[Rfam]
RNA sequence: GGAAAUUUGAGAGGAGCUGUCCUUAGUACGAGAGGACCGGGAUGGACAUACCUCUGGUGUACCAGUUGUCGUGCCAACGGCAUAGCUGGGUAGCUAUGUAUGGACGGGAUAAGUGCUGAAAGCAUCUAAGCAUGAAGCCCUCCUCAAGAUGAGAUUUCCCAACUUCGGUUAUAAGAUCCCUCGAAGAUGACGAGGUUAAUAGGUUCGAGGUGGAAGCGUGGUGACACGUGGAGCUGACGAAUACUAAUCGAUCGAAG
Numbered sequence: 001g002g003a004a005a006u007u008u009g010a011g012a013g014g015a016g017c018u019g020u021c022c023u024u025a026g027u028a029c030g031a032g033a034g035g036a037c038c039g040g041g042a043u044g045g046a047c048a049u050a051c052c053u054c055u056g057g058u059g060u061a062c063c064a065g066u067u068g069u070c071g072u073g074c075c076a077a078c079g080g081c082a083u084a085g086c087u088g089g090g091u092a093g094c095u096a097u098g099u100a101u102g103g104a105c106g107g108g109a110u111a112a113g114u115g116c117u118g119a120a121a122g123c124a125u126c127u128a129a130g131c132a133u134g135a136a137g138c139c140c141u142c143c144u145c146a147a148g149a150u151g152a153g154a155u156u157u158c159c160c161a162a163c164u165u166c167g168g169u170u171a172u173a174a175g176a177u178c179c180c181u182c183g184a185a186g187a188u189g190a191c192g193a194g195g196u197u198a199a200u201a202g203g204u205u206c207g208a209g210g211u212g213g214a215a216g217c218g219u220g221g222u223g224a225c226a227c228g229u230g231g232a233g234c235u236g237a238c239g240a241a242u243a244c245u246a247a248u249c250g251a252u253c254g255a256a257g
Stems, first nucleotide, its partner, number of pairs: 001159008011145004017045007047102005055096003062089005067082006106140003113133005162170001164168001172255001175253004179195005200246003203242005209235002216229005
The record is a 257-nucleotide part of an RNA from Staphylococcus saccharolyticus, which matches "Bacterial large subunit ribosomal RNA" in Rfam.
The organism belongs to Staphylococcus, within Bacteria.
The match comes from Rfam's covariance-model search (2991 bits).